Source information: RNase MRP: a 432-nucleotide sequence from Pyrenochaeta sp. MPI-SDFR-AT-0127. The organism belongs to Pyrenochaeta, within Eukaryota. RNase MRP is an enzymatically active ribonucleoprotein with two distinct roles in eukaryotes. In mitochondria it plays a direct role in the initiation of mitochondrial DNA replication. In the nucleus it is involved in precursor rRNA processing, where it cleaves the internal transcribed spacer 1 between 18S and 5.8S rRNAs.
RNA sequence: UCCUCGCUCAAAGAAUCGCAACGAAGCACACAUACAGAGUGCCUUCGGGCAUCUCUCGACCUACGCUUUGGGAGAAAGUCCCCGGACAUCGAUCCUCGCGAUCGCACUUUCAGCAACGAACCGCCAUAGAAGCGCGGCCUCUCUACCGCUUCACGCACUUCUUCGAUCUCUUUUCCGCUUGCACUCUUGGCUCUCACUCUCUCUUCGCCGCGAGUGGAGGGGCUGGCACCGGGGCGAUGAUAUGAGCCCGCUGGCUUCCUUGCUUGCGCGCUGAGGGUUUCCUGAGGAACAAGAGGAGGAAGAGCGUACCGGGGGAUUGCAAGGUAUAGAGGGUCUCCUCGUCCAGUUUAUGGUUAUGCGAUUGCCUUCCAUCGUCUUGUACACACGAGGCGUGCCGGAGGUAACUCAAUGGGGCUUAUUCUUGACGCGAGG
Numbered sequence: 001u002c003c004u005c006g007c008u009c010a011a012a013g014a015a016u017c018g019c020a021a022c023g024a025a026g027c028a029c030a031c032a033u034a035c036a037g038a039g040u041g042c043c044u045u046c047g048g049g050c051a052u053c054u055c056u057c058g059a060c061c062u063a064c065g066c067u068u069u070g071g072g073a074g075a076a077a078g079u080c081c082c083c084g085g086a087c088a089u090c091g092a093u094c095c096u097c098g099c100g101a102u103c104g105c106a107c108u109u110u111c112a113g114c115a116a117c118g119a120a121c122c123g124c125c126a127u128a129g130a131a132g133c134g135c136g137g138c139c140u141c142u143c144u145a146c147c148g149c150u151u152c153a154c155g156c157a158c159u160u161c162u163u164c165g166a167u168c169u170c171u172u173u174u175c176c177g178c179u180u181g182c183a184c185u186c187u188u189g190g191c192u193c194u195c196a197c198u199c200u201c202u203c204u205u206c207g208c209c210g211c212g213a214g215u216g217g218a219g220g221g222g223c224u225g226g227c228a229c230c231g232g233g234g235c236g237a238u239g240a241u242a243u244g245a246g247c248c249c250g251c252u253g254g255c256u257u258c259c260u261u262g263c264u265u266g267c268g269c270g271c272u273g274a275g276g277g278u279u280u281c282c283u284g285a286g287g288a289a290c291a292a293g294a295g296g297a298g299g300a301a302g303a304g305c306g307u308a309c310c311g312g313g314g315g316a317u318u319g320c321a322a323g324g325u326a327u328a329g330a331g332g333g334u335c336u337c338c339u340c341g342u343c344c345a346g347u348u349u350a351u352g353g354u355u356a357u358g359c360g361a362u363u364g365c366c367u368u369c370c371a372u373c374g375u376c377u378u379g380u381a382c383a384c385a386c387g388a389g390g391c392g393u394g395c396c397g398g399a400g401g402u403a404a405c406u407c408a409a410u411g412g413g414g415c416u417u418a419u420u421c422u423u424g425a426c427g428c429g430a431g432g
Base pairs, nucleotide, nucleotide: 002432003431004430005429006428007427008425009424010423011422014363015362016361017360018359019358022070023069024068025067026066027065037055038054039053040051041050042049043048076417077416078415080414081413082412083411249331251329252328253327258324259323260322269315271313299309301307365401366400367399368398369397